[Rfam]
RNA: Guanidine-I riboswitch aptamer
RNA sequence: CGAAAGGGUCGCUAGGGUUCCGAUGCCGUGCAGUGGUCGCCACGCGCGGUGUGUCUGGUCCGAGAGCAACCGGCCUCAAGGGCCCUCGACGGCACUCAGGCUCCACGGCGGGACAAAAGCCCGGGAGAU
Numbered sequence: 001c002g003a004a005a006g007g008g009u010c011g012c013u014a015g016g017g018u019u020c021c022g023a024u025g026c027c028g029u030g031c032a033g034u035g036g037u038c039g040c041c042a043c044g045c046g047c048g049g050u051g052u053g054u055c056u057g058g059u060c061c062g063a064g065a066g067c068a069a070c071c072g073g074c075c076u077c078a079a080g081g082g083c084c085c086u087c088g089a090c091g092g093c094a095c096u097c098a099g100g101c102u103c104c105a106c107g108g109c110g111g112g113a114c115a116a117a118a119g120c121c122c123g124g125g126a127g128a129u
Stems, first nucleotide, its partner, number of pairs: 007071003011067002015061002020058002022055001023052009072102005078096001104124001106127001110122003
Dot-bracket structure: ......(((.((..((...((((((((((((............)))))))))..).)).))....)).)))(((((.(.................).))))).(.[...(((.......))).)..]..